The family of this 93-nucleotide sequence from Salix viminalis is "small nucleolar RNA snoR114". Gene Ontology terms of the family: nucleolus and RNA processing. The source organism's lineage runs through Eukaryota, Streptophyta, eudicotyledons, Gunneridae and Salix. A reference for the family is Chen and Wu (2009), "Mining small RNA sequencing data: a new approach to identify small nucleolar RNAs in Arabidopsis", Nucleic Acids Res. The family's RNA type in Rfam is C/D-box small nucleolar RNA. Rfam 15.1 lists 1,645 matches to the family in 183 species.

RNA sequence: AAGCUGUGAUGAAAUGUGUGCUCGCUGUGAUGAUACGGGUCUAUCACUACCGUCAGAUGUCUUCAUCGGACGAAAAGGAGUACAUCUGAGCUU
Numbered sequence: 001a002a003g004c005u006g007u008g009a010u011g012a013a014a015u016g017u018g019u020g021c022u023c024g025c026u027g028u029g030a031u032g033a034u035a036c037g038g039g040u041c042u043a044u045c046a047c048u049a050c051c052g053u054c055a056g057a058u059g060u061c062u063u064c065a066u067c068g069g070a071c072g073a074a075a076a077g078g079a080g081u082a083c084a085u086c087u088g089a090g091c092u093u
Base pairs, nucleotide, nucleotide: 001093002092003091004090